[Rfam]
The family of this 98-nucleotide RNA sequence from Streptomyces sp. ADI95-17 is "Glycine riboswitch aptamer". The match comes from Rfam's covariance-model search (64 bits). Lineage of the source: Bacteria > Bacillati > Kitasatosporales > Streptomycetaceae > Streptomyces.
RNA sequence: CGAAUCCGCGCGGGAGAGUUCCGGUCACUUUCUGUGCCGGGCGCCGAAGGAGCAAGUUCCUCCCUUGAAUCUCUCAGGCCCCGUACCGCGUGGAUGAG
Numbered sequence: 001c002g003a004a005u006c007c008g009c010g011c012g013g014g015a016g017a018g019u020u021c022c023g024g025u026c027a028c029u030u031u032c033u034g035u036g037c038c039g040g041g042c043g044c045c046g047a048a049g050g051a052g053c054a055a056g057u058u059c060c061u062c063c064c065u066u067g068a069a070u071c072u073c074u075c076a077g078g079c080c081c082c083g084u085a086c087c088g089c090g091u092g093g094a095u096g097a098g
Base pairs, nucleotide, nucleotide: 006093007092008091009090010089011088012087013086020041021040022039023038024037025036043079044078045077046075047074050073051072052071056066